[Rfam]
Nucleotides: 067
Base pairs, nucleotide, nucleotide: 001067003065004064005063014052015051016050017049018048019047020046021045022044023043029038030037031036
Number, partner (000 for none) and nucleotide at each position: 001067a002000u003065c004064g005063c006000u007000c008000a009000a010000u011000g012000a013000c014052g015051g016050g017049a018048g019047c020046u021045g022044c023043u024000g025000a026000a027000a028000u029038g030037u031036u032000g033000c034000c035000c036031g037030a038029c039000a040000c041000c042000u043023g044022g045021c046020a047019g048018u049017u050016c051015c052014c053000u054000g055000a056000a057000a058000a059000c060000u061000c062000u063005g064004c065003g066000c067001u
The record is a 67-nucleotide sequence from Ophiophagus hannah, which matches "Selenocysteine insertion sequence 1" in Rfam. Rfam links the family to the GO term selenocysteine incorporation. The family's consensus secondary structure is taken from published work.